The record is a 132-nucleotide sequence from Imperialibacter sp. EC-SDR9, which matches "SAM riboswitch aptamer (S box leader)" in Rfam.
Rfam describes the family as follows. The SAM riboswitch is found upstream of a number of genes which code for proteins involved in methionine or cysteine biosynthesis in Gram-positive bacteria.
The source organism's lineage runs through Bacteria, Bacteroidota, Cytophagia, Cytophagales and Imperialibacter.
Pairs were carried over by alignment from the consensus structure, which is taken from published work.
The literature on the family includes a 1998 paper in Mol Microbiol by Grundy and Henkin, "The S box regulon: a new global transcription termination control system for methionine and cysteine biosynthesis genes in gram-positive bacteria".

RNA sequence: CUCUUAUCAAGAAAGACUGAGGGAUGGGCCCUUUGAAGUCUUGGCAACCUUCCACCUCCCUGGGGAAUAGGUGCCAACUCCCACUUGGAGAACGUAAUGUGUAAAGCAUUAUUUAUCCGAGACAGAUAAGCG
Number, nucleotide and partner (000 for none) at each position: 001c132002u000003c130004u129005u128006a127007u126008c125009a000010a000011g000012a000013a042014a041015g040016a039017c038018u000019g000020a000021g031022g030023g029024a000025u083026g082027g081028g080029c023030c022031c021032u000033u000034u000035g000036a000037a000038g017039u016040c015041u014042u013043g075044g074045c073046a072047a000048c071049c070050u067051u066052c065053c064054a000055c000056c000057u000058c000059c000060c000061u000062g000063g000064g053065g052066a051067a050068u000069a000070g049071g048072u046073g045074c044075c043076a000077a000078c000079u124080c028081c027082c026083a025084c121085u120086u119087g118088g117089a116090g000091a000092a000093c000094g000095u000096a000097a000098u000099g000100u000101g000102u000103a000104a000105a000106g000107c000108a000109u000110u000111a000112u000113u000114u000115a000116u089117c088118c087119g086120a085121g084122a000123c000124a079125g008126a007127u006128a005129a004130g003131c000132g001